Rfam assigns this 94-nucleotide sequence from Anaeromyxobacter sp. Fw109-5 to the family "Bacterial small signal recognition particle RNA". The match comes from Rfam's covariance-model search (52 bits). Rfam classes the family as a non-coding RNA gene.
RNA sequence: CAGAAUCCUCGGGCGACGUGGGGGUUGCCAAACCCCGCCAGGCCCGGAAGGGAGCAACGGUAGGUGGUCCUCCGUGCGCCCGGGGAUUGUGGGC
Numbered sequence: 001c002a003g004a005a006u007c008c009u010c011g012g013g014c015g016a017c018g019u020g021g022g023g024g025u026u027g028c029c030a031a032a033c034c035c036c037g038c039c040a041g042g043c044c045c046g047g048a049a050g051g052g053a054g055c056a057a058c059g060g061u062a063g064g065u066g067g068u069c070c071u072c073c074g075u076g077c078g079c080c081c082g083g084g085g086a087u088u089g090u091g092g093g094c
Stems, first nucleotide, its partner, number of pairs: 004088010014076001016075003020071002024068006035060003043052003
Taxonomically the source falls in Anaeromyxobacter (Bacteria, Pseudomonadati, Myxococcia, Myxococcales). From the family's description: The signal recognition particle (SRP) is a universally conserved ribonucleoprotein involved in the co-translational targeting of proteins to membranes.